The family of this 70-nucleotide RNA sequence from Takifugu rubripes is "mir-8/mir-141/mir-200 microRNA precursor family". NCBI's taxonomy places the organism under Eukaryota, Eumetazoa, Clupeocephala, Tetraodontiformes, Takifugu. For this family Rfam cites "Identification of novel genes coding for small expressed RNAs" (Lagos-Quintana et al., Science, 2001).
[Rfam]
RNA sequence: GGAUCCAUCUUACCCGACAGUGCUGGAUUGUACUACUGUUGUUCUAACACUGUCUGGUAACGAUGUUUUC
Numbered sequence: 001g002g003a004u005c006c007a008u009c010u011u012a013c014c015c016g017a018c019a020g021u022g023c024u025g026g027a028u029u030g031u032a033c034u035a036c037u038g039u040u041g042u043u044c045u046a047a048c049a050c051u052g053u054c055u056g057g058u059a060a061c062g063a064u065g066u067u068u069u070c
Stems, first nucleotide, its partner, number of pairs: 002069002006065004010060005016054007024046004